[Rfam]
RNA sequence: AUACUCUGGUUUCUUACCAAAUUGAACAAAUCUUUUGCCCCUCAGUAAAGAUUUUCGUGGAGAGGAACAGGCAUGAGUUUUGAAGGAUGCAUAUUGUAAAAGAGCAAUU
Numbered sequence: 001a002u003a004c005u006c007u008g009g010u011u012u013c014u015u016a017c018c019a020a021a022u023u024g025a026a027c028a029a030a031u032c033u034u035u036u037g038c039c040c041c042u043c044a045g046u047a048a049a050g051a052u053u054u055u056c057g058u059g060g061a062g063a064g065g066a067a068c069a070g071g072c073a074u075g076a077g078u079u080u081u082g083a084a085g086g087a088u089g090c091a092u093a094u095u096g097u098a099a100a101a102g103a104g105c106a107a108u109u
Base pairs, nucleotide, nucleotide: 003078004077005076006075009068010067011066012065013064014063015062017060018059019058028054029053030052031051032050033049034048035047
The record is a 109-nucleotide RNA from Pomatorhinus ruficollis, which matches "U5 spliceosomal RNA" in Rfam. Pairs were carried over by alignment from the consensus structure, which is taken from published work. By type it is a spliceosomal small nuclear RNA. For this family Rfam cites "The uRNA database" (Zwieb, Nucleic Acids Res, 1997). Taxonomically the source falls in Pomatorhinus (Eukaryota, Tetrapoda, Passeriformes, Timaliidae).